[Rfam]
RNA sequence: AGCAGAGUAGGGGUUCGCGCGUAAAGUGUCAGUCGGACGGGGAGUUGCCGCUGAACGAAAAGCCUUGGCUUGCGGUGCGACCUCCGCAUCCCGCUGCU
Numbered sequence: 001a002g003c004a005g006a007g008u009a010g011g012g013g014u015u016c017g018c019g020c021g022u023a024a025a026g027u028g029u030c031a032g033u034c035g036g037a038c039g040g041g042g043a044g045u046u047g048c049c050g051c052u053g054a055a056c057g058a059a060a061a062g063c064c065u066u067g068g069c070u071u072g073c074g075g076u077g078c079g080a081c082c083u084c085c086g087c088a089u090c091c092c093g094c095u096g097c098u
Stems, first nucleotide, its partner, number of pairs: 001098005010085004015080005020074003026056002029054004034050003040091003044087001060071004
Rfam assigns this 98-nucleotide sequence from Anaeromassilibacillus sp. An250 to the family "THF (Tetrahydrofolate) riboswitch aptamer". The base pairs follow the family's consensus structure, which is taken from published work. Lineage of the source: Bacteria > Bacillota > Clostridia > Acutalibacteraceae > Anaeromassilibacillus. It scores 88 bits against the family's covariance model. The literature on the family includes a 2010 paper in Chem Biol by Ames et al., "A eubacterial riboswitch class that senses the coenzyme tetrahydrofolate".